[Rfam]
RNA sequence: CACGAGCGCCGCGACUGGCGAUACGUGGAAUCGACCACGGGGAAGCGGUGCUCGGCGAAGAGCACACGAAGGUGCCGCCCGCCUGGGCACCCGGG
Numbered sequence: 001c002a003c004g005a006g007c008g009c010c011g012c013g014a015c016u017g018g019c020g021a022u023a024c025g026u027g028g029a030a031u032c033g034a035c036c037a038c039g040g041g042g043a044a045g046c047g048g049u050g051c052u053c054g055g056c057g058a059a060g061a062g063c064a065c066a067c068g069a070a071g072g073u074g075c076c077g078c079c080c081g082c083c084u085g086g087g088c089a090c091c092c093g094g095g
Stems, first nucleotide, its partner, number of pairs: 003054010015042002017083004025038004072090005